A member of the RNA family "DUF3800-V RNA", 94 nucleotides long.
[Rfam]
RNA sequence: AGAGGGGCAAGUAAUACCUUUUAAACUCUUAUAAUGUUCCCUGAUGGAUAUUGGGCCAAGUUAUAAGGAGAUGUUUAAAAGGUUUUGCCUCUCU
Numbered sequence: 001a002g003a004g005g006g007g008c009a010a011g012u013a014a015u016a017c018c019u020u021u022u023a024a025a026c027u028c029u030u031a032u033a034a035u036g037u038u039c040c041c042u043g044a045u046g047g048a049u050a051u052u053g054g055g056c057c058a059a060g061u062u063a064u065a066a067g068g069a070g071a072u073g074u075u076u077a078a079a080a081g082g083u084u085u086u087g088c089c090u091c092u093c094u
Base pairs, nucleotide, nucleotide: 001094002093003092004091005090007088008087022077023076024075025074026073027071028070029066030065031064032063033062034061035060040055041054042053043052044051045050
About this RNA:
The family's RNA type in Rfam is small RNA.